[Rfam]
RNA: Potassium channel RNA editing signal
RNA sequence: CUUGGCUAUGGGGACAUGUAUCCAGUCACAUGGUCAGGGAUGUUGGUGGGAGCAUUGUGCGCUUUAGCUGGUGUGUUGACCAUUGCUAUGCCUGUCCCUGUCAUUGUCAACAAC
Numbered sequence: 001c002u003u004g005g006c007u008a009u010g011g012g013g014a015c016a017u018g019u020a021u022c023c024a025g026u027c028a029c030a031u032g033g034u035c036a037g038g039g040a041u042g043u044u045g046g047u048g049g050g051a052g053c054a055u056u057g058u059g060c061g062c063u064u065u066a067g068c069u070g071g072u073g074u075g076u077u078g079a080c081c082a083u084u085g086c087u088a089u090g091c092c093u094g095u096c097c098c099u100g101u102c103a104u105u106g107u108c109a110a111c112a113a114c
Stems, first nucleotide, its partner, number of pairs: 002113001004111001008107004013102004018097001020095002037077002040074001049063002